[Rfam]
RNA sequence: GGCACCUAAAAGCGUUUUCUUGUCCGCUCAAUUUUAAUGCGCUAGAAAAUCGUUGAAAGUGUGCCAAAUAAAAGUCCACUUGCAAGUAACUUUAGCUUUUACCACACUUAAGUUUUAAAAUACUGGCUACACUU
Number, nucleotide and partner (000 for none) at each position: 001g065002g064003c063004a062005c061006c059007u000008a000009a000010a000011a000012g053013c052014g051015u049016u048017u047018u046019c045020u000021u000022g040023u039024c000025c000026g000027c000028u000029c000030a000031a000032u000033u000034u000035u000036a000037a000038u000039g023040c022041g000042c000043u000044a000045g019046a018047a017048a016049a015050u000051c014052g013053u012054u000055g000056a000057a000058a000059g006060u000061g005062u004063g003064c002065c001066a000067a000068a000069u000070a000071a000072a000073a000074g000075u000076c126077c125078a124079c000080u122081u000082g000083c000084a000085a000086g000087u000088a115089a113090c112091u111092u110093u000094a108095g107096c000097u000098u000099u000100u000101a000102c000103c000104a000105c000106a000107c095108u094109u000110a092111a091112g090113u089114u000115u088116u000117a000118a000119a000120a000121u000122a080123c000124u078125g077126g076127c000128u000129a000130c000131a000132c000133u000134u000
The family of this 134-nucleotide RNA sequence from Scaptodrosophila lebanonensis is "Small nucleolar RNA psi28S-3316".
From the family's description: psi28S-3316 is a member of the H/ACA class of snoRNA. This family is responsible for guiding the modification of uridine 3316 in Drosophila 28S rRNA to pseudouridine.
It is annotated as an H/ACA-box small nucleolar RNA.
NCBI's taxonomy places the organism under Eukaryota, Metazoa, Endopterygota, Panorpida, Scaptodrosophila.
The base pairs follow the family's consensus structure, which was predicted with RNAfold.